Small nucleolar RNA snoR2/U65: a 149-nucleotide RNA sequence from Zea mays. Its Rfam clan is "SNORA65 clan". Lineage of the source: Eukaryota > Magnoliopsida > Poaceae > Tripsacinae > Zea.
RNA sequence: GGCCUGAUGCCACGUCUCUGGUAGCCACGAGCAUUGACCGGAGAUGCUAUGAUUAGGCCGAUACAAAGGUGUUUCAAUGUUUCACAUGUCGAUAGGAACCUGGGGACGGCUUCUAUCUGUCCACAGAGCCGUUUUCUGUGAUUACAGUC
Numbered sequence: 001g002g003c004c005u006g007a008u009g010c011c012a013c014g015u016c017u018c019u020g021g022u023a024g025c026c027a028c029g030a031g032c033a034u035u036g037a038c039c040g041g042a043g044a045u046g047c048u049a050u051g052a053u054u055a056g057g058c059c060g061a062u063a064c065a066a067a068g069g070u071g072u073u074u075c076a077a078u079g080u081u082u083c084a085c086a087u088g089u090c091g092a093u094a095g096g097a098a099c100c101u102g103g104g105g106a107c108g109g110c111u112u113c114u115a116u117c118u119g120u121c122c123a124c125a126g127a128g129c130c131g132u133u134u135u136c137u138g139u140g141a142u143u144a145c146a147g148u149c
Stems, first nucleotide, its partner, number of pairs: 002058007009050001013046006020039003024032002082141005095130002100126003104122005